[Rfam]
RNA sequence: GUGUGAGUGAUGAAGAAAAUCAGACGGAUUCCCAAUGAUUUUUGCUCAAAAAAUGAUAUUUACCAGCUACUUCUGACACAC
Dot-bracket structure: (((((.......................................................................)))))
Numbered sequence: 001g002u003g004u005g006a007g008u009g010a011u012g013a014a015g016a017a018a019a020u021c022a023g024a025c026g027g028a029u030u031c032c033c034a035a036u037g038a039u040u041u042u043u044g045c046u047c048a049a050a051a052a053a054u055g056a057u058a059u060u061u062a063c064c065a066g067c068u069a070c071u072u073c074u075g076a077c078a079c080a081c
Stems, first nucleotide, its partner, number of pairs: 001081005